[Rfam]
RNA sequence: AGGCCCUAGAAAUCAAGUGUGGGUGAGGCCUGGGAUUAAAGCUUUAUGGCGACCCAUACUUGGUUUCUGAGGCUU
Numbered sequence: 001a002g003g004c005c006c007u008a009g010a011a012a013u014c015a016a017g018u019g020u021g022g023g024u025g026a027g028g029c030c031u032g033g034g035a036u037u038a039a040a041g042c043u044u045u046a047u048g049g050c051g052a053c054c055c056a057u058a059c060u061u062g063g064u065u066u067c068u069g070a071g072g073c074u075u
Stems, first nucleotide, its partner, number of pairs: 002074004007069001009067006016060002021055004028050003
A member of the RNA family "mir-551 microRNA precursor family" from Lepisosteus oculatus, 75 nucleotides long. Gene Ontology terms of the family: RISC complex and miRNA-mediated post-transcriptional gene silencing. The family's consensus secondary structure was predicted with RNAalifold. A reference for the family is Shao et al. (2008), "Identification of novel chicken microRNAs and analysis of their genomic organization", Gene. The source organism's lineage runs through Eukaryota, Opisthokonta, Neopterygii, Lepisosteidae and Lepisosteus. A search with the family's covariance model found it, with a score of 77 bits.